[Rfam]
RNA: c-di-AMP riboswitch aptamer (ydaO/yuaA leader)
Organism: Kocuria rhizophila
RNA sequence: UACACAGAACAUCCGCAUGGCAGAAGCGGGGGAACCACUUCCGGAUUCGUGACAGCCCGUCGAAUCCUAGGGGUCAAGCCGGCACGGCUCACCAGCACGUGCGGCCGGAUGUCUCCCAUCCGAACCCGACAGCUCACCCCGCAGGCGUAGGGAGGAACA
Numbered sequence: 001u002a003c004a005c006a007g008a009a010c011a012u013c014c015g016c017a018u019g020g021c022a023g024a025a026g027c028g029g030g031g032g033a034a035c036c037a038c039u040u041c042c043g044g045a046u047u048c049g050u051g052a053c054a055g056c057c058c059g060u061c062g063a064a065u066c067c068u069a070g071g072g073g074u075c076a077a078g079c080c081g082g083c084a085c086g087g088c089u090c091a092c093c094a095g096c097a098c099g100u101g102c103g104g105c106c107g108g109a110u111g112u113c114u115c116c117c118a119u120c121c122g123a124a125c126c127c128g129a130c131a132g133c134u135c136a137c138c139c140c141g142c143a144g145g146c147g148u149a150g151g152g153a154g155g156a157a158c159a
Base pairs, nucleotide, nucleotide: 001025003023026142027141028140029139030138031137036070071127072126073125079104080103081102107121108120109119110118